[Rfam]
RNA: transfer-messenger RNA
RNA sequence: GGGGCUGACAUGGUUUCGACACCGUACAGUGAGCCAGGGGAAGCGUGCCGGUGCAGGCUAGAGACCACCGUUUAAGCGUCGUAGCAACUGAUUAAGCGCCGAGAACACUCAGCGCGACUACGCUCUCGCUGCCUAAUUAAGCGACUAGCGUGUCUGUCAGGCCGGGCUUGCCCUUUGGCCCGGACCCUGGCAUCGACUUAAAAGGGCUCGCCCGAUGGGUGUGCCGUAAGGCUCAUCGGGGAUCUUCUUACUUGCGGCUGGACCCGUCAUUCGGACAUGUUUGCCUGAGCCGAAGGGUCGAGUAGAGGCGAUCGUGCGAACUGCGCACGGAGAAGCCCUGGCGAGUUGGCGGUGGACCCGAGUUCAAUUCUCGGCAGCUCCACAG
Numbered sequence: 001g002g003g004g005c006u007g008a009c010a011u012g013g014u015u016u017c018g019a020c021a022c023c024g025u026a027c028a029g030u031g032a033g034c035c036a037g038g039g040g041a042a043g044c045g046u047g048c049c050g051g052u053g054c055a056g057g058c059u060a061g062a063g064a065c066c067a068c069c070g071u072u073u074a075a076g077c078g079u080c081g082u083a084g085c086a087a088c089u090g091a092u093u094a095a096g097c098g099c100c101g102a103g104a105a106c107a108c109u110c111a112g113c114g115c116g117a118c119u120a121c122g123c124u125c126u127c128g129c130u131g132c133c134u135a136a137u138u139a140a141g142c143g144a145c146u147a148g149c150g151u152g153u154c155u156g157u158c159a160g161g162c163c164g165g166g167c168u169u170g171c172c173c174u175u176u177g178g179c180c181c182g183g184a185c186c187c188u189g190g191c192a193u194c195g196a197c198u199u200a201a202a203a204g205g206g207c208u209c210g211c212c213c214g215a216u217g218g219g220u221g222u223g224c225c226g227u228a229a230g231g232c233u234c235a236u237c238g239g240g241g242a243u244c245u246u247c248u249u250a251c252u253u254g255c256g257g258c259u260g261g262a263c264c265c266g267u268c269a270u271u272c273g274g275a276c277a278u279g280u281u282u283g284c285c286u287g288a289g290c291c292g293a294a295g296g297g298u299c300g301a302g303u304a305g306a307g308g309c310g311a312u313c314g315u316g317c318g319a320a321c322u323g324c325g326c327a328c329g330g331a332g333a334a335g336c337c338c339u340g341g342c343g344a345g346u347u348g349g350c351g352g353u354g355g356a357c358c359c360g361a362g363u364u365c366a367a368u369u370c371u372c373g374g375c376a377g378c379u380c381c382a383c384a385g
Stems, first nucleotide, its partner, number of pairs: 001381007020354006028346001033342007044329005049070005057085004125148002128145001130143003155192006162183007170207007211240009223258005261299005267293002276287002279321004285314001358374005